[Rfam]
Shown here is a 140-nucleotide sequence from Priestia veravalensis, a member of the family "c-di-AMP riboswitch aptamer (ydaO/yuaA leader)".

RNA sequence: UAGAUGAAAUCGCUGAAUCCUAAUAGGAGCGGAGGAACCACUUUUGCACACUUUGUGCUCGGGGUGAAUCCUUUAUAGGUAGGGUUACUCUCAUAACCCGAAUCCGACAGCUAACUUCGCAAGCGUUUUGAGGGGGAGAU
Numbered sequence: 001u002a003g004a005u006g007a008a009a010u011c012g013c014u015g016a017a018u019c020c021u022a023a024u025a026g027g028a029g030c031g032g033a034g035g036a037a038c039c040a041c042u043u044u045u046g047c048a049c050a051c052u053u054u055g056u057g058c059u060c061g062g063g064g065u066g067a068a069u070c071c072u073u074u075a076u077a078g079g080u081a082g083g084g085u086u087a088c089u090c091u092c093a094u095a096a097c098c099c100g101a102a103u104c105c106g107a108c109a110g111c112u113a114a115c116u117u118c119g120c121a122a123g124c125g126u127u128u129u130g131a132g133g134g135g136g137a138g139a140u
Stems, first nucleotide, its partner, number of pairs: 011125004018028003029120006039061001062105003070079003082099004
Rfam's curators write: This family represents a conserved RNA structure found upstream of the ydaO and yuaA genes in Bacillus subtilis and related genes in other bacteria.
The base pairs follow the family's consensus structure.
NCBI's taxonomy places the organism under Bacteria, Bacillati, Bacilli, Bacillaceae, Priestia.